Bacterial large subunit ribosomal RNA: a 587-nucleotide part of an RNA from Parasphaerochaeta coccoides. Rfam's curators put it in the seed alignment. Rfam links the family to the GO terms structural constituent of ribosome and ribosome.

[Rfam]
RNA sequence: CUUGUGGUCAGACGGAAAGACCCCGUGAACCUUUACUUCAACUUGGUACGGAGAGUUGGACGCGCAUGUGUAGGAUAGGUGGGAGGCGAGGAGGCGUGGCCGUCAGGCUGCGCGGAGCCAGUGGUGAAAUACCACCCUUGCGCGUGCAAUUCCCUAACGCGGCCCCUGAAGCGGGGCGGCGGACAGUGCCAGGCGGGAAGUUUGACUGGGGCGGUCGCCUCCCAAAGGGUAACGGAGGCGCGCGAAGGUCACCUUAGGAUGGUUGGGAAUCAUCCGGCAAGCGUAAAGGCACAAGGUGGCUUGACUGCGAGGCCGACAAGCCGAGCAGGUACGAAAGUAGGUCUUAGUGAUCUGGCGGUAGCGCGUGGAAGCGCCGUCACGUAACGGAUAAAAGGUACUCCGGGGAUAACAGGCUGAUCUUGCCCAAGAGUUCAUAUCGACGGCAAGGUUUGGCACCUCGAUGUCGGCUCAUCGCAUCCUGGGGCUGGAGCAGGUCCCAAGGGUUUGGCUGUUCGCCAAUCAAAGCGGUACGUGAGCUGGGUUCAGAACGUCGUGAGACAGUUCGGUCCCUAUCUGCCACAAGCGUU
Numbered sequence: 001c002u003u004g005u006g007g008u009c010a011g012a013c014g015g016a017a018a019g020a021c022c023c024c025g026u027g028a029a030c031c032u033u034u035a036c037u038u039c040a041a042c043u044u045g046g047u048a049c050g051g052a053g054a055g056u057u058g059g060a061c062g063c064g065c066a067u068g069u070g071u072a073g074g075a076u077a078g079g080u081g082g083g084a085g086g087c088g089a090g091g092a093g094g095c096g097u098g099g100c101c102g103u104c105a106g107g108c109u110g111c112g113c114g115g116a117g118c119c120a121g122u123g124g125u126g127a128a129a130u131a132c133c134a135c136c137c138u139u140g141c142g143c144g145u146g147c148a149a150u151u152c153c154c155u156a157a158c159g160c161g162g163c164c165c166c167u168g169a170a171g172c173g174g175g176g177c178g179g180c181g182g183a184c185a186g187u188g189c190c191a192g193g194c195g196g197g198a199a200g201u202u203u204g205a206c207u208g209g210g211g212c213g214g215u216c217g218c219c220u221c222c223c224a225a226a227g228g229g230u231a232a233c234g235g236a237g238g239c240g241c242g243c244g245a246a247g248g249u250c251a252c253c254u255u256a257g258g259a260u261g262g263u264u265g266g267g268a269a270u271c272a273u274c275c276g277g278c279a280a281g282c283g284u285a286a287a288g289g290c291a292c293a294a295g296g297u298g299g300c301u302u303g304a305c306u307g308c309g310a311g312g313c314c315g316a317c318a319a320g321c322c323g324a325g326c327a328g329g330u331a332c333g334a335a336a337g338u339a340g341g342u343c344u345u346a347g348u349g350a351u352c353u354g355g356c357g358g359u360a361g362c363g364c365g366u367g368g369a370a371g372c373g374c375c376g377u378c379a380c381g382u383a384a385c386g387g388a389u390a391a392a393a394g395g396u397a398c399u400c401c402g403g404g405g406a407u408a409a410c411a412g413g414c415u416g417a418u419c420u421u422g423c424c425c426a427a428g429a430g431u432u433c434a435u436a437u438c439g440a441c442g443g444c445a446a447g448g449u450u451u452g453g454c455a456c457c458u459c460g461a462u463g464u465c466g467g468c469u470c471a472u473c474g475c476a477u478c479c480u481g482g483g484g485c486u487g488g489a490g491c492a493g494g495u496c497c498c499a500a501g502g503g504u505u506u507g508g509c510u511g512u513u514c515g516c517c518a519a520u521c522a523a524a525g526c527g528g529u530a531c532g533u534g535a536g537c538u539g540g541g542u543u544c545a546g547a548a549c550g551u552c553g554u555g556a557g558a559c560a561g562u563u564c565g566g567u568c569c570c571u572a573u574c575u576g577c578c579a580c581a582a583g584c585g586u587u
Base pairs, nucleotide, nucleotide: 001583002582003581004580005579006578007577008576010575011574012573014570015569022404023403024402025401027400028399029396030395031394032393033392035201036200037199038198042193043192044191045190046189047188048187051154053152054151055150056149057148058147060145061144062143063142064141065140066139068137078136079135080134081133082132085119086118087117094113095112096111097110098109099108100107101106158181159180160179164176165175166174167173204216205215206214207213217239218238219237220236221235222234240385242342243341248300249299250298251297252296253295254280255279257275258274259273260272261271262270281290282289305328306327307326308325311322312321313320330339331338332337353379354378355377356376357375358374359373361372362371413454414453415452417451418448419447420446421445422444423443424442428438429437465540466538467537468536469535470532471529472528473527474526475525478503479502481498482497483496484495485494486493505519506518507517508516509515546564547563548562549561550559551558552557